[Rfam]
RNA: MIR8565 microRNA precursor family
RNA sequence: CCCCCACCCAUGUAUGUAGGAUCCCAAAGGAUCCCCAUUAAAUUUAGCAUGGAUCUUUAGAAAAGUUAUCACACGGGUGUGGGACUUGACUUUUUUAGAGAUCUGUACCAAAUUUAAUGGUGAUCCUUUGUGGUCCUACAAAUAUGGGUGGGGG
Numbered sequence: 001c002c003c004c005c006a007c008c009c010a011u012g013u014a015u016g017u018a019g020g021a022u023c024c025c026a027a028a029g030g031a032u033c034c035c036c037a038u039u040a041a042a043u044u045u046a047g048c049a050u051g052g053a054u055c056u057u058u059a060g061a062a063a064a065g066u067u068a069u070c071a072c073a074c075g076g077g078u079g080u081g082g083g084a085c086u087u088g089a090c091u092u093u094u095u096u097a098g099a100g101a102u103c104u105g106u107a108c109c110a111a112a113u114u115u116a117a118u119g120g121u122g123a124u125c126c127u128u129u130g131u132g133g134u135c136c137u138a139c140a141a142a143u144a145u146g147g148g149u150g151g152g153g154g
Stems, first nucleotide, its partner, number of pairs: 002153012015140009025130004030125003035120011047108001049106020069082005